[Rfam]
RNA sequence: GGUCAUGAGCUCCAGCGCGUAGCCCCGGCUUGCUGGACGGCAACCCUCCACCGCGGUGGGGUGCCCCGGGUGAUGACCGGGCCACCUGGACCACAGGUGGCAAGCGCGGGCC
Numbered sequence: 001g002g003u004c005a006u007g008a009g010c011u012c013c014a015g016c017g018c019g020u021a022g023c024c025c026c027g028g029c030u031u032g033c034u035g036g037a038c039g040g041c042a043a044c045c046c047u048c049c050a051c052c053g054c055g056g057u058g059g060g061g062u063g064c065c066c067c068g069g070g071u072g073a074u075g076a077c078c079g080g081g082c083c084a085c086c087u088g089g090a091c092c093a094c095a096g097g098u099g100g101c102a103a104g105c106g107c108g109g110g111c112c
Stems, first nucleotide, its partner, number of pairs: 001078004009038001011037006021030002039065003044061003048056002081101008
The record is a 112-nucleotide RNA sequence from Oryzihumus leptocrescens, which matches "SAM (S-adenosyl methionine) riboswitch aptamer" in Rfam.
Its family is annotated with S-adenosylmethionine metabolic process and regulation of gene expression in the Gene Ontology.
Rfam's curators write: SAM-IV is a mRNA element that regulates gene expression via direct sensing of S-adenosylmethionine (SAM or AdoMet). SAM-IV riboswitches share conserved nucleotide positions with the previously described SAM-I riboswitches sequence analysis and molecular recognition experiments suggest that SAM-I and SAM-IV riboswitches share similar ligand binding sites, but have different scaffolds.
The match comes from Rfam's covariance-model search (109 bits).
The family's consensus secondary structure is taken from published work.